[Rfam]
RNA sequence: GGGGGCGACAUGGCUUCGACGCCGGUGACAAUCCCUGAGGUGCAUGCCGAGAGCGUAACGUAUCUCGUAAAUCCAACGUUGCAAUUGAAUAGUCGCAAACGACGAAAACUACGCUCAGGGCGCACUGGCAGCGUAAAAACUGCUAGUUGUUAGCCUGGCCCCAAAGCGAUGUGCCCAUUCAUCGUGGCGGGGAUACGAGCUAAAGCUGAUGGGACCGCGGAUGUCAGCGCUCUCCUGACAUUCGUUAAACCUUAGAGAGAUCGCAAGGUGCCAUCCUGCCCGUCGGAGUGCACUGCGUUAAAUCAAAAGACGGAACUAAGCAUGUAGAGCUGAUGGGCGAGUGCCGGCGGACGGGGGUUCAAUUCCCCCCGCCUCCACCA
Numbered sequence: 001g002g003g004g005g006c007g008a009c010a011u012g013g014c015u016u017c018g019a020c021g022c023c024g025g026u027g028a029c030a031a032u033c034c035c036u037g038a039g040g041u042g043c044a045u046g047c048c049g050a051g052a053g054c055g056u057a058a059c060g061u062a063u064c065u066c067g068u069a070a071a072u073c074c075a076a077c078g079u080u081g082c083a084a085u086u087g088a089a090u091a092g093u094c095g096c097a098a099a100c101g102a103c104g105a106a107a108a109c110u111a112c113g114c115u116c117a118g119g120g121c122g123c124a125c126u127g128g129c130a131g132c133g134u135a136a137a138a139a140c141u142g143c144u145a146g147u148u149g150u151u152a153g154c155c156u157g158g159c160c161c162c163a164a165a166g167c168g169a170u171g172u173g174c175c176c177a178u179u180c181a182u183c184g185u186g187g188c189g190g191g192g193a194u195a196c197g198a199g200c201u202a203a204a205g206c207u208g209a210u211g212g213g214a215c216c217g218c219g220g221a222u223g224u225c226a227g228c229g230c231u232c233u234c235c236u237g238a239c240a241u242u243c244g245u246u247a248a249a250c251c252u253u254a255g256a257g258a259g260a261u262c263g264c265a266a267g268g269u270g271c272c273a274u275c276c277u278g279c280c281c282g283u284c285g286g287a288g289u290g291c292a293c294u295g296c297g298u299u300a301a302a303u304c305a306a307a308a309g310a311c312g313g314a315a316c317u318a319a320g321c322a323u324g325u326a327g328a329g330c331u332g333a334u335g336g337g338c339g340a341g342u343g344c345c346g347g348c349g350g351a352c353g354g355g356g357g358u359u360c361a362a363u364u365c366c367c368c369c370c371g372c373c374u375c376c377a378c379c380a
Stems, first nucleotide, its partner, number of pairs: 001376007020349008033337003039331003043324005048067005055082007124147008153200002156197002159192004166185004174213006218244006229261001231259001233257001263298002267294005274287003278316001281313001282311003353369005
This 380-nucleotide sequence from Salinicola sp. MIT1003 belongs to the Rfam family "transfer-messenger RNA". From the family's description: Bacterial tmRNA, also known as 10Sa RNA or SsrA, is named for its dual tRNA and mRNA-like properties. Its role is to liberate the mRNA from a stalled ribosome. The family's RNA type in Rfam is non-coding RNA gene. It scores 202 bits against the family's covariance model.